Shown here is an 81-nucleotide sequence from Carlito syrichta, a member of the family "Small nucleolar RNA SNORD115".
Its family is annotated with RNA processing and nucleolus in the Gene Ontology.
The base pairs follow the family's consensus structure, which was predicted with PFOLD.
The family has 32 seed sequences and 3,387 matches in Rfam 15.1.
On this family, see Cavaille et al., Proc Natl Acad Sci U S A 2000: "Identification of brain-specific and imprinted small nucleolar RNA genes exhibiting an unusual genomic organization".

RNA sequence: GGGUCAAUGAUGCGAACUUUAUAUUGUCUGAAGAUAAGUGAUGUCUUAAAUACCAUGCACAAUAGUAUUACGCUGAGGUCC
Numbered sequence: 001g002g003g004u005c006a007a008u009g010a011u012g013c014g015a016a017c018u019u020u021a022u023a024u025u026g027u028c029u030g031a032a033g034a035u036a037a038g039u040g041a042u043g044u045c046u047u048a049a050a051u052a053c054c055a056u057g058c059a060c061a062a063u064a065g066u067a068u069u070a071c072g073c074u075g076a077g078g079u080c081c
Stems, first nucleotide, its partner, number of pairs: 001081004005075002008072002
Taxonomically the source falls in Carlito (Eukaryota, Gnathostomata, Teleostomi, Dipnotetrapodomorpha). The family's RNA type in Rfam is C/D-box small nucleolar RNA.